[Rfam]
RNA sequence: AUUUAAUAAGUAACCCUUUCCUAUAUAACUUCGGAAAUAUGGUCCGAGAGUCUCUACCAAACAACCGUAAAUUGUUUGACUAUAGGAAGGGGGUGCGGGUUA
Numbered sequence: 001a002u003u004u005a006a007u008a009a010g011u012a013a014c015c016c017u018u019u020c021c022u023a024u025a026u027a028a029c030u031u032c033g034g035a036a037a038u039a040u041g042g043u044c045c046g047a048g049a050g051u052c053u054c055u056a057c058c059a060a061a062c063a064a065c066c067g068u069a070a071a072u073u074g075u076u077u078g079a080c081u082a083u084a085g086g087a088a089g090g091g092g093g094u095g096c097g098g099g100u101u102a
Stems, first nucleotide, its partner, number of pairs: 018088008030048006058078007
This 102-nucleotide sequence from Geotoga petraea belongs to the Rfam family "Purine riboswitch aptamer". NCBI's taxonomy places the organism under Bacteria, Thermotogati, Thermotogota, Petrotogaceae, Geotoga.